A member of the RNA family "small nucleolar RNA snoR135" from Selaginella moellendorffii, 145 nucleotides long. For this family Rfam cites "Mining small RNA sequencing data: a new approach to identify small nucleolar RNAs in Arabidopsis" (Chen and Wu, Nucleic Acids Res, 2009). The family has 6 seed sequences and 837 matches in Rfam 15.1.
RNA sequence: GUGGCAGUGUGUGUGUACUAGAGCUGUGCUUGCUCCCUUUGCAGCUCUUGAAUGGUACUACUGCUAGAUUCCUUGUGGGGAGCGUGGGCAGUUGUUUCGUAGGCGCUGCCAAUCACGAAUCUCAACAAUCACGCUCUCUAGAUCU
Numbered sequence: 001g002u003g004g005c006a007g008u009g010u011g012u013g014u015g016u017a018c019u020a021g022a023g024c025u026g027u028g029c030u031u032g033c034u035c036c037c038u039u040u041g042c043a044g045c046u047c048u049u050g051a052a053u054g055g056u057a058c059u060a061c062u063g064c065u066a067g068a069u070u071c072c073u074u075g076u077g078g079g080g081a082g083c084g085u086g087g088g089c090a091g092u093u094g095u096u097u098c099g100u101a102g103g104c105g106c107u108g109c110c111a112a113u114c115a116c117g118a119a120u121c122u123c124a125a126c127a128a129u130c131a132c133g134c135u136c137u138c139u140a141g142a143u144c145u
Stems, first nucleotide, its partner, number of pairs: 004064005014043004077139011091126004

The family's consensus secondary structure was predicted with RNAalifold. It scores 45 bits against the family's covariance model. Taxonomically the source falls in Selaginella (Eukaryota, Viridiplantae, Tracheophyta, Selaginelloideae).